A member of the RNA family "Bacterial small subunit ribosomal RNA" from Opitutaceae bacterium TAV5, 584 nucleotides of a longer RNA. The family is grouped with related families in Rfam's "SSU clan". The source organism's lineage runs through Bacteria, Verrucomicrobiota, Opitutia, Opitutales and Opitutaceae.

[Rfam]
RNA sequence: UUUUCGGAGAGUUUGAUCCUGGCUCAGAAUGAACGCUGGCGGCGUGGUUAAGACAUGCAAGUCGAACGGGGUUUUUAUUUGUAGCAAUACAGAUGAAAACCUAGUGGCGAACGGGUGCGUAACACGUGAACAAUCUACUUCCUAGUGUGGAAUAAUUCGCCGAAAGGUGGACUAAUACCGCAUGUGGUUGUUUUUCUCAUGGAAAACAUACCAAAGACAGGGACCGCAAGGCCUGUCGCUGGGAAAGGAGUUCGCGGCCUAUCAGCUAGUUGGUGAGGUAACGGCUCACCAAGGCAAAGACGGGUAGCCGGUCUGAGAGGACGACCGGCCACACUGGAACUGAGACACGGUCCAGACACCUACGGGUGGCAGCAGUUUCGAAUCAUUCACAAUGGGCGAAAGCCUGAUGGUGCGACGCCGCGUGAGGGAUGAAGGUCUUCGGAUUGUAAACCUCUGUCACCGGGGAAGAAACGCUGACGGUUAAUAGCUGUUCAGCCUGACUUAACCCGGAGAGGAAGCAGUGGCUAACUCUGUGCCAGCAGCCGCGGUAAUACAGAGACUGCGAGCGUUAUUCGGAUUCACUG
Numbered sequence: 001u002u003u004u005c006g007g008a009g010a011g012u013u014u015g016a017u018c019c020u021g022g023c024u025c026a027g028a029a030u031g032a033a034c035g036c037u038g039g040c041g042g043c044g045u046g047g048u049u050a051a052g053a054c055a056u057g058c059a060a061g062u063c064g065a066a067c068g069g070g071g072u073u074u075u076u077a078u079u080u081g082u083a084g085c086a087a088u089a090c091a092g093a094u095g096a097a098a099a100c101c102u103a104g105u106g107g108c109g110a111a112c113g114g115g116u117g118c119g120u121a122a123c124a125c126g127u128g129a130a131c132a133a134u135c136u137a138c139u140u141c142c143u144a145g146u147g148u149g150g151a152a153u154a155a156u157u158c159g160c161c162g163a164a165a166g167g168u169g170g171a172c173u174a175a176u177a178c179c180g181c182a183u184g185u186g187g188u189u190g191u192u193u194u195u196c197u198c199a200u201g202g203a204a205a206a207c208a209u210a211c212c213a214a215a216g217a218c219a220g221g222g223a224c225c226g227c228a229a230g231g232c233c234u235g236u237c238g239c240u241g242g243g244a245a246a247g248g249a250g251u252u253c254g255c256g257g258c259c260u261a262u263c264a265g266c267u268a269g270u271u272g273g274u275g276a277g278g279u280a281a282c283g284g285c286u287c288a289c290c291a292a293g294g295c296a297a298a299g300a301c302g303g304g305u306a307g308c309c310g311g312u313c314u315g316a317g318a319g320g321a322c323g324a325c326c327g328g329c330c331a332c333a334c335u336g337g338a339a340c341u342g343a344g345a346c347a348c349g350g351u352c353c354a355g356a357c358a359c360c361u362a363c364g365g366g367u368g369g370c371a372g373c374a375g376u377u378u379c380g381a382a383u384c385a386u387u388c389a390c391a392a393u394g395g396g397c398g399a400a401a402g403c404c405u406g407a408u409g410g411u412g413c414g415a416c417g418c419c420g421c422g423u424g425a426g427g428g429a430u431g432a433a434g435g436u437c438u439u440c441g442g443a444u445u446g447u448a449a450a451c452c453u454c455u456g457u458c459a460c461c462g463g464g465g466a467a468g469a470a471a472c473g474c475u476g477a478c479g480g481u482u483a484a485u486a487g488c489u490g491u492u493c494a495g496c497c498u499g500a501c502u503u504a505a506c507c508c509g510g511a512g513a514g515g516a517a518g519c520a521g522u523g524g525c526u527a528a529c530u531c532u533g534u535g536c537c538a539g540c541a542g543c544c545g546c547g548g549u550a551a552u553a554c555a556g557a558g559a560c561u562g563c564g565a566g567c568g569u570u571a572u573u574c575g576g577a578u579u580c581a582c583u584g
Base pairs, nucleotide, nucleotide: 009025010024011023012022013021027574028573029572030571032570033569034568035567036566037565039421040420041419042418043417044416045414046413047379052377053376054375056374057373058372061108062107063106066105067104069101070100077094078093079092080091081090082089083088115332116331117330125256126255127254128253129252130251131250134249135248139245140244141243142242143241144240145239147181148180149179150178156171157170158169159168160167161166187211188210189208190207191206192205193204194203195202196201216237217236218235219234220233221232258304259303260302265295266294267293270292271291272290273289274288275287276286277285307329308328309327310326311322312321313320314319334355335354336353337352338351357368358367359366360365385411387410388409389408393406394405395404396403397402424454425453426452427451434445435444436443437442458515460510461509462508463507464506468501474495475494476493518563519562520561521560522559529558530557531556532555533554539546540545